[Rfam]
RNA sequence: AUAAGCAGAAGAGGUGCGAUGCUUAGGUAUUUAAUGGUAGGUGACGAAAGCCGAAGACCAUUAAAGAGGGAAGUAUUCGCCGAGGAAAGUUAUUGUACGUCGCGAUAACUUUUCGGUUUACGAGGCUGAAUCCUCGGAACUGUCACCGUUAUUGGUGGAGAGCUUCUGGCAGA
Numbered sequence: 001a002u003a004a005g006c007a008g009a010a011g012a013g014g015u016g017c018g019a020u021g022c023u024u025a026g027g028u029a030u031u032u033a034a035u036g037g038u039a040g041g042u043g044a045c046g047a048a049a050g051c052c053g054a055a056g057a058c059c060a061u062u063a064a065a066g067a068g069g070g071a072a073g074u075a076u077u078c079g080c081c082g083a084g085g086a087a088a089g090u091u092a093u094u095g096u097a098c099g100u101c102g103c104g105a106u107a108a109c110u111u112u113u114c115g116g117u118u119u120a121c122g123a124g125g126c127u128g129a130a131u132c133c134u135c136g137g138a139a140c141u142g143u144c145a146c147c148g149u150u151a152u153u154g155g156u157g158g159a160g161a162g163c164u165u166c167u168g169g170c171a172g173a
Base pairs, nucleotide, nucleotide: 006168007167008166009165010164011163016080017079018078019077021074022073023072024071030065031064032063033062034061035060036059037058084114085113086112087111088110089109090108091107092106093105094104095103115141116140117139118138121136122135123134124133125132143158144157145156146155147154148153
The family of this 173-nucleotide sequence from Pseudoalteromonas sp. A25 is "Lysine riboswitch aptamer". It scores 101 bits against the family's covariance model.